[Rfam]
RNA: mir-147 microRNA precursor family
RNA sequence: UGUCAGUCUAACAGAAUCAUCUCUGCACAGACUAGGAACACUGGCAAUCAGUGUGCGGAAAUGCUUCUGCUGCACUGGUG
Numbered sequence: 001u002g003u004c005a006g007u008c009u010a011a012c013a014g015a016a017u018c019a020u021c022u023c024u025g026c027a028c029a030g031a032c033u034a035g036g037a038a039c040a041c042u043g044g045c046a047a048u049c050a051g052u053g054u055g056c057g058g059a060a061a062u063g064c065u066u067c068u069g070c071u072g073c074a075c076u077g078g079u080g
Stems, first nucleotide, its partner, number of pairs: 001080002004077004009072002012069005018063003022059008032051002